RNA: SAM riboswitch aptamer (S box leader)
RNA sequence: UUCUUAUCAAGAGAGGUGGAGGGAAUGGCCCUGCGAAACCUCGGCAACAGACUCAUUAUUGAGCACUGUGCCAAUUCCAACAAGCUAAGUGCUUGGAAGAUAAGUU
Numbered sequence: 001u002u003c004u005u006a007u008c009a010a011g012a013g014a015g016g017u018g019g020a021g022g023g024a025a026u027g028g029c030c031c032u033g034c035g036a037a038a039c040c041u042c043g044g045c046a047a048c049a050g051a052c053u054c055a056u057u058a059u060u061g062a063g064c065a066c067u068g069u070g071c072c073a074a075u076u077c078c079a080a081c082a083a084g085c086u087a088a089g090u091g092c093u094u095g096g097a098a099g100a101u102a103a104g105u106u
Base pairs, nucleotide, nucleotide: 003104004103005102006101007100008099013042014041015040016039017038021031022030023029026079027078028077043072044071045070046069048068049067050064053061076098081095082094083093084092085091